[Rfam]
RNA sequence: UGAUACCAGGGUCGAAAAAUCAAACGUCGAUUGUGCUUGCACAAAUAGAUGUUUGAUCUUGAGACCCGCCCACAAUAUGAGGAUAAAAGUGUGGCGUAUGCCACACGAUAUCCGAAUGUGUGUGGGGGAUUACGGGAGUACAAAGUACGGAGCAAUCCGCAGGGUAUCA
Numbered sequence: 001u002g003a004u005a006c007c008a009g010g011g012u013c014g015a016a017a018a019a020u021c022a023a024a025c026g027u028c029g030a031u032u033g034u035g036c037u038u039g040c041a042c043a044a045a046u047a048g049a050u051g052u053u054u055g056a057u058c059u060u061g062a063g064a065c066c067c068g069c070c071c072a073c074a075a076u077a078u079g080a081g082g083a084u085a086a087a088a089g090u091g092u093g094g095c096g097u098a099u100g101c102c103a104c105a106c107g108a109u110a111u112c113c114g115a116a117u118g119u120g121u122g123u124g125g126g127g128g129a130u131u132a133c134g135g136g137a138g139u140a141c142a143a144a145g146u147a148c149g150g151a152g153c154a155a156u157c158c159g160c161a162g163g164g165u166a167u168c169a
Base pairs, nucleotide, nucleotide: 001169002168003167004166005165006164007163010066011065012064013063016060017059019057020056021055022054023053024052025051026050027049028048030046031044032043033042034041035040071124072123073122074121076118077117078116081113082112083111084110089106090105091104092103093102094101095100127158128157129156130155131154133152138148139147140146141145
The family of this 169-nucleotide RNA sequence from Oscillospiraceae bacterium Marseille-Q3528 is "Clostridiales-1 RNA". Rfam 15.1 lists 1,172 matches to the family in 137 species.